This 108-nucleotide RNA sequence from Sphingomonas sp. JC676 belongs to the Rfam family "Rhizobiales sRNA Atu_At1". For this family Rfam cites "Deep sequencing uncovers numerous small RNAs on all four replicons of the plant pathogen Agrobacterium tumefaciens" (Wilms et al., RNA Biol, 2012).
RNA sequence: UGUCGAGCCGUGUUAAUCGGACGAGGCAGGGAUGAUGAAUGCAGGGGUUUUUCCGAUUUCACCCUGCGACCAACGAAAUGGUAGUCGAGCGUCCAACCUGUCCGGCUC
Number, nucleotide and partner (000 for none) at each position: 001u000002g000003u000004c000005g000006a107007g106008c105009c104010g000011u023012g022013u021014u020015a000016a000017u000018c000019g000020g014021a013022c012023g011024a000025g102026g101027c100028a099029g098030g097031g000032a000033u000034g093035a092036u091037g090038a000039a000040u068041g067042c066043a065044g064045g063046g062047g000048u000049u000050u000051u000052u000053c000054c000055g000056a000057u000058u000059u000060c000061a000062c046063c045064c044065u043066g042067c041068g040069a082070c081071c080072a000073a000074c000075g000076a000077a000078a000079u000080g071081g070082u069083a000084g000085u000086c000087g000088a000089g000090c037091g036092u035093c034094c000095a000096a000097c030098c029099u028100g027101u026102c025103c000104g009105g008106c007107u006108c000
The base pairs follow the family's consensus structure, which was predicted with CMfinder.